The record is a 189-nucleotide RNA sequence from Acidovorax carolinensis, which matches "Manganese Mn2+ riboswitch aptamer (yybP-ykoY)" in Rfam. For this family Rfam cites "Novel small RNA-encoding genes in the intergenic regions of Escherichia coli" (Argaman et al., Curr Biol, 2001). It scores 70 bits against the family's covariance model. Rfam describes the family as follows. This RNA was originally discovered in E. coli during a large scale screen and was named SraF. The family was later found to exist upstream of related families of protein genes in many bacteria, including the the yybP and ykoK genes in B. subtilis. NCBI's taxonomy places the organism under Bacteria, Pseudomonadati, Pseudomonadota, Burkholderiales, Acidovorax.
[Rfam]
RNA sequence: ACUGCGGUCUUUGGGGAGUAGCCCGCCGGGCAGCACAGUGCGCCGGGGGCAUGCGUCAACAUACUUGGGUUCUCACAACCUAUGGCGCAUGCGGCUUGCAAUGAGCUGGGCGAGACCAUUGACUGCAUGCCGAUCCAUUGGCCGGAGUCGGGGUGCAGUCAAUGCGUUCACCACCCAUCCGGCCGGAUU
Numbered sequence: 001a002c003u004g005c006g007g008u009c010u011u012u013g014g015g016g017a018g019u020a021g022c023c024c025g026c027c028g029g030g031c032a033g034c035a036c037a038g039u040g041c042g043c044c045g046g047g048g049g050c051a052u053g054c055g056u057c058a059a060c061a062u063a064c065u066u067g068g069g070u071u072c073u074c075a076c077a078a079c080c081u082a083u084g085g086c087g088c089a090u091g092c093g094g095c096u097u098g099c100a101a102u103g104a105g106c107u108g109g110g111c112g113a114g115a116c117c118a119u120u121g122a123c124u125g126c127a128u129g130c131c132g133a134u135c136c137a138u139u140g141g142c143c144g145g146a147g148u149c150g151g152g153g154u155g156c157a158g159u160c161a162a163u164g165c166g167u168u169c170a171c172c173a174c175c176c177a178u179c180c181g182g183c184c185g186g187a188u189u
Stems, first nucleotide, its partner, number of pairs: 026047002049092010066082005093188001095186002098183002